[Rfam]
RNA sequence: AGCUUUCUGAAUCCAAGCACAGAUUUCGUCAGACACCAACCCAUGAGGACUGAUCAGACUUCCAAGAUAAGUGAAGUU
Dot-bracket structure: .(((((.(..(((...(...((.(((.(((.....................))).))))).)...)))..).))))).